[Rfam]
A member of the RNA family "Actinobacteria sRNA Ms_IGR-5" from Actinacidiphila glaucinigra, 204 nucleotides long.
The family's RNA type in Rfam is small RNA.
RNA sequence: ACACACGAAGGGAGGUGGUCCGGAGAAUGAGUUCCCAUCGGACGCGUGAGGUGACUGCGGGCUGACGCCUGCGCUCCUCGCCUGCGCGCGAUGUGCGUAGCGGGCCAAUUCCAUCGCAGUCACCCGACCCGCGGGCUCGUCGGAUUCGUCCGGCCGAUGCCCGGACGGUUCGCCGUCCGGGGAGCAGCCCGCGGGUCGCCUGCG
Numbered sequence: 001a002c003a004c005a006c007g008a009a010g011g012g013a014g015g016u017g018g019u020c021c022g023g024a025g026a027a028u029g030a031g032u033u034c035c036c037a038u039c040g041g042a043c044g045c046g047u048g049a050g051g052u053g054a055c056u057g058c059g060g061g062c063u064g065a066c067g068c069c070u071g072c073g074c075u076c077c078u079c080g081c082c083u084g085c086g087c088g089c090g091a092u093g094u095g096c097g098u099a100g101c102g103g104g105c106c107a108a109u110u111c112c113a114u115c116g117c118a119g120u121c122a123c124c125c126g127a128c129c130c131g132c133g134g135g136c137u138c139g140u141c142g143g144a145u146u147c148g149u150c151c152g153g154c155c156g157a158u159g160c161c162c163g164g165a166c167g168g169u170u171c172g173c174c175g176u177c178c179g180g181g182g183a184g185c186a187g188c189c190c191g192c193g194g195g196u197c198g199c200c201u202g203c204g
Stems, first nucleotide, its partner, number of pairs: 015058005060106004066102001069100003073096002125198013139158005